RNA sequence: GAAGUUCGCCAGGCAAUCGCGUUACGUUCGCGUAGCGAGGAAAGUCCGGGCCCCGCAGAGCAGGAUGCCGGCUAACGGCCGGGCGCCAUAGCCUUCGGGUGAAAGCGACGGAAAGUGCAACAGAGAGCAGACCGCCGAUGGCUCUUCGGAGAUCAGGCAAGGGUGAAACGGUGGGGUAAGAGCCCACCGCGGCACUGGUGACAGUGACGGCACGGUAAACCCCAUCCGGGGCAAGGCCAAAUAGGGGGACGUCGACGCUGCUCGCGGAGUCCCCGGGUAGGCUGCUUGAGCGGCGUGGCAACACGUCGUCCAGAGGAAUGAUUGCCCGGCGUGCUGGUUUUCGGAUCGGCCCGCUCGACAGAACCCGGCUUAUCGGCGAGCUUCCCUU
Numbered sequence: 001g002a003a004g005u006u007c008g009c010c011a012g013g014c015a016a017u018c019g020c021g022u023u024a025c026g027u028u029c030g031c032g033u034a035g036c037g038a039g040g041a042a043a044g045u046c047c048g049g050g051c052c053c054c055g056c057a058g059a060g061c062a063g064g065a066u067g068c069c070g071g072c073u074a075a076c077g078g079c080c081g082g083g084c085g086c087c088a089u090a091g092c093c094u095u096c097g098g099g100u101g102a103a104a105g106c107g108a109c110g111g112a113a114a115g116u117g118c119a120a121c122a123g124a125g126a127g128c129a130g131a132c133c134g135c136c137g138a139u140g141g142c143u144c145u146u147c148g149g150a151g152a153u154c155a156g157g158c159a160a161g162g163g164u165g166a167a168a169c170g171g172u173g174g175g176g177u178a179a180g181a182g183c184c185c186a187c188c189g190c191g192g193c194a195c196u197g198g199u200g201a202c203a204g205u206g207a208c209g210g211c212a213c214g215g216u217a218a219a220c221c222c223c224a225u226c227c228g229g230g231g232c233a234a235g236g237c238c239a240a241a242u243a244g245g246g247g248g249a250c251g252u253c254g255a256c257g258c259u260g261c262u263c264g265c266g267g268a269g270u271c272c273c274c275g276g277g278u279a280g281g282c283u284g285c286u287u288g289a290g291c292g293g294c295g296u297g298g299c300a301a302c303a304c305g306u307c308g309u310c311c312a313g314a315g316g317a318a319u320g321a322u323u324g325c326c327c328g329g330c331g332u333g334c335u336g337g338u339u340u341u342c343g344g345a346u347c348g349g350c351c352c353g354c355u356c357g358a359c360a361g362a363a364c365c366c367g368g369c370u371u372a373u374c375g376g377c378g379a380g381c382u383u384c385c386c387u388u
Base pairs, nucleotide, nucleotide: 001384002383003382004381005380006379007378008377009376010375011373012326013325014324015323016322017321018320020037021036022035023034024033025032026031042371043370044369046368047367048366049365050364051231052230053229054228058263059262060261061260063227064226065225066224067223068082069081070080071079072078083109084107085106086105110222111221115220116219117216118215132162133161134158135157136156139155140154142151143150144149170188171187172186173185174184175183189211190209191208193206194205195204196203197202235283236282237281238280245274246273247272248271249270250269256266257265258264290309291308292307293306294305295304296303297302
The family of this 388-nucleotide RNA from Zoogloea ramigera is "Bacterial RNase P class A". The match comes from Rfam's covariance-model search (306 bits). Ribonuclease P (RNase P) is a ubiquitous endoribonuclease, found in archaea, bacteria and eukarya as well as chloroplasts and mitochondria. Its best characterised activity is the generation of mature 5'-ends of tRNAs by cleaving the 5'-leader elements of precursor-tRNAs.